[Rfam]
This 71-nucleotide sequence from Alligator sinensis belongs to the Rfam family "Mammalian CPEB3 ribozyme". Lineage of the source: Eukaryota > Deuterostomia > Chordata > Craniata > Alligator.

RNA sequence: CCUGGCCAGGCCAUAGCAGAAGCACUCACAGUGUGGCCCUGUCAGAUUCCAAUGGAUCUGCAAAUUCUUCU
Numbered sequence: 001c002c003u004g005g006c007c008a009g010g011c012c013a014u015a016g017c018a019g020a021a022g023c024a025c026u027c028a029c030a031g032u033g034u035g036g037c038c039c040u041g042u043c044a045g046a047u048u049c050c051a052a053u054g055g056a057u058c059u060g061c062a063a064a065u066u067c068u069u070c071u
Stems, first nucleotide, its partner, number of pairs: 005039001009038004015071002018068004022034003043060007